[Rfam]
RNA sequence: AAGUGGGACUCAGACUACAAUAGAGCUGUUAAGUGCUGUGUUGUGGUUCCCACAAUAAAGUUGCUCUUAAGUAUACCUGUCUGCUGUGCUCCUAUAGCAGCCAGGGAUGCUUGGUCUCAUACAU
Numbered sequence: 001a002a003g004u005g006g007g008a009c010u011c012a013g014a015c016u017a018c019a020a021u022a023g024a025g026c027u028g029u030u031a032a033g034u035g036c037u038g039u040g041u042u043g044u045g046g047u048u049c050c051c052a053c054a055a056u057a058a059a060g061u062u063g064c065u066c067u068u069a070a071g072u073a074u075a076c077c078u079g080u081c082u083g084c085u086g087u088g089c090u091c092c093u094a095u096a097g098c099a100g101c102c103a104g105g106g107a108u109g110c111u112u113g114g115u116c117u118c119a120u121a122c123a124u
Stems, first nucleotide, its partner, number of pairs: 003053005017044006024037003076105004081100004
RNA: Small nucleolar RNA SNORA63
Organism: Carlito syrichta